[Rfam]
RNA sequence: AAGCCAACCGUUGACUCUGCUUACUUGAAUGUGUUUCUGCAGAAAUUUAGAAAAAGUUGGCAAUAAUAAAGCCAUGUUACGAGCCUUAGUGAUACUUAGGUCAUUAAGGUCCCUGAAAAUGGCUACAGUU
Numbered sequence: 001a002a003g004c005c006a007a008c009c010g011u012u013g014a015c016u017c018u019g020c021u022u023a024c025u026u027g028a029a030u031g032u033g034u035u036u037c038u039g040c041a042g043a044a045a046u047u048u049a050g051a052a053a054a055a056g057u058u059g060g061c062a063a064u065a066a067u068a069a070a071g072c073c074a075u076g077u078u079a080c081g082a083g084c085c086u087u088a089g090u091g092a093u094a095c096u097u098a099g100g101u102c103a104u105u106a107a108g109g110u111c112c113c114u115g116a117a118a119a120u121g122g123c124u125a126c127a128g129u130u
Stems, first nucleotide, its partner, number of pairs: 003061005016043005071123004083110007091102003

This 130-nucleotide RNA sequence from Loxodonta africana belongs to the Rfam family "Small nucleolar RNA SNORA33". Rfam describes the family as follows. ACA33 is a member of the H/ACA class of snoRNA that guide the sites of modification of uridines to pseudouridines. Gene Ontology terms of the family: RNA processing and nucleolus. Pairs were carried over by alignment from the consensus structure, which was predicted with PFOLD.